Rfam assigns this 111-nucleotide RNA from Suricata suricatta to the family "Small nucleolar RNA SNORA72". Gene Ontology terms of the family: RNA processing and nucleolus. It is annotated as an H/ACA-box small nucleolar RNA. Pairs were carried over by alignment from the consensus structure, which was predicted with PFOLD. Rfam's curators write: U72 is a member of the H/ACA class of snoRNAs. The snoRNA gene is located in intron 4 of the ribosomal L30 protein gene in human, mouse and chicken. On this family, see Ganot et al., Genes Dev 1997: "The family of box ACA small nucleolar RNAs is defined by an evolutionarily conserved secondary structure and ubiquitous sequence elements essential for RNA accumulation". The source organism's lineage runs through Eukaryota, Teleostomi, Laurasiatheria, Feliformia and Suricata.
RNA sequence: UAGCAAAUAUUCCUGCUGUUCUGAUUUUGUAAUAAUCAAGACAGGUUAAACGUUUGCUCCCCAGACUUAGUUCUUCCCCUAGAUCUGGUUUUAUCAAUGCUGGUGAUUUAU
Numbered sequence: 001u002a003g004c005a006a007a008u009a010u011u012c013c014u015g016c017u018g019u020u021c022u023g024a025u026u027u028u029g030u031a032a033u034a035a036u037c038a039a040g041a042c043a044g045g046u047u048a049a050a051c052g053u054u055u056g057c058u059c060c061c062c063a064g065a066c067u068u069a070g071u072u073c074u075u076c077c078c079c080u081a082g083a084u085c086u087g088g089u090u091u092u093a094u095c096a097a098u099g100c101u102g103g104u105g106a107u108u109u110a111u
Stems, first nucleotide, its partner, number of pairs: 003057003016044005022038005061088005067082004